A member of the RNA family "S15-Halobacteria ribosomal protein leader" from Haladaptatus cibarius, 110 nucleotides long. The source organism's lineage runs through Archaea, Halobacteria, Halobacteriales, Haladaptatus and Haladaptatus cibarius.

RNA sequence: UAGGGAACGGCACAGCCGCAAAUCCGACUCGUUGCGUGUGUUCGCGGGCACCUGCCCGCUCUCUUUCGGGGCAUUUGCCCUCUUUGCGCAACUUGGGAUUGCGGACGUGC
Numbered sequence: 001u002a003g004g005g006a007a008c009g010g011c012a013c014a015g016c017c018g019c020a021a022a023u024c025c026g027a028c029u030c031g032u033u034g035c036g037u038g039u040g041u042u043c044g045c046g047g048g049c050a051c052c053u054g055c056c057c058g059c060u061c062u063c064u065u066u067c068g069g070g071g072c073a074u075u076u077g078c079c080c081u082c083u084u085u086g087c088g089c090a091a092c093u094u095g096g097g098a099u100u101g102c103g104g105a106c107g108u109g110c
Base pairs, nucleotide, nucleotide: 010110011109012108013107016104017103018102019101020100021099024097025096031092032091033090034089035088036087037086
The family's RNA type in Rfam is cis-regulatory leader. On this family, see Eckert and Weinberg, BMC Microbiol 2020: "Discovery of 20 novel ribosomal leader candidates in bacteria and archaea". The family's consensus secondary structure is taken from published work. The family is grouped with related families in Rfam's "Ribosomal Protein S15 Leader clan".